Rfam assigns this 63-nucleotide sequence from Pandion haliaetus to the family "mir-367 microRNA precursor family". The source organism's lineage runs through Eukaryota, Euteleostomi, Saurischia, Neoaves and Pandion. The base pairs follow the family's consensus structure, which was predicted with RNAalifold. A reference for the family is Mineno et al. (2006), "The expression profile of microRNAs in mouse embryos", Nucleic Acids Res.

RNA sequence: ACCGUUGCUAAUAUGCAACUCUGUUGUAUAAAAAUUGGAAUUGCACUUUAGCAAUGGUGAUGG
Number, nucleotide and partner (000 for none) at each position: 001a058002c057003c056004g055005u054006u053007g052008c051009u050010a049011a048012u000013a000014u045015g044016c043017a042018a041019c000020u039021c038022u037023g036024u000025u000026g000027u000028a000029u000030a000031a000032a000033a000034a000035u000036u023037g022038g021039a020040a000041u018042u017043g016044c015045a014046c000047u000048u011049u010050a009051g008052c007053a006054a005055u004056g003057g002058u001059g000060a000061u000062g000063g000